[Rfam]
RNA sequence: GCACAUCUCAAGUUUGUGCGUGAAUCUAACCCCAUCACAGCCGUCCGUUUUCCCGCUCUCAUCUGAUGGCGUUAGAUUCACGCACAAACUCGCGAUCUGUCC
Numbered sequence: 001g002c003a004c005a006u007c008u009c010a011a012g013u014u015u016g017u018g019c020g021u022g023a024a025u026c027u028a029a030c031c032c033c034a035u036c037a038c039a040g041c042c043g044u045c046c047g048u049u050u051u052c053c054c055g056c057u058c059u060c061a062u063c064u065g066a067u068g069g070c071g072u073u074a075g076a077u078u079c080a081c082g083c084a085c086a087a088a089c090u091c092g093c094g095a096u097c098u099g100u101c102c
Base pairs, nucleotide, nucleotide: 001100002099003098005096006095007094011090012089013088014087015086016085017084018083019082020081021080022079023078024077025076026075028073029072030071032069033068043059
RNA: MIR403 microRNA precursor family